A member of the RNA family "PreQ1 (pre queuosine) riboswitch aptamer" from Enterococcus hirae, 47 nucleotides long. The base pairs follow the family's consensus structure. About the family: This family is a bacterial riboswitch that binds to the metabolite preQ1, an intermediate in the biosynthesis of the modified nucleoside queuosine from GTP. One example of this riboswitch is located in the leader of the Bacillus subtilis ykvJKLM (queCDEF) operon which encodes four genes necessary for queuosine production. PreQ1 binding to the riboswitch aptamer is thought to induce premature transcription termination within the leader to down-regulate expression of these genes.
[Rfam]
RNA sequence: ACAGCUGCGGUUCAUCAACCAUCCCGCAUUAAAAAAACUAGGAGAAA
Number, nucleotide and partner (000 for none) at each position: 001a000002c000003a000004g000005c000006u028007g027008c026009g025010g024011u000012u000013c000014a000015u040016c000017a000018a000019c000020c000021a000022u000023c000024c010025c009026g008027c007028a006029u000030u000031a000032a000033a000034a000035a000036a000037a000038c000039u000040a015041g000042g000043a000044g000045a000046a000047a000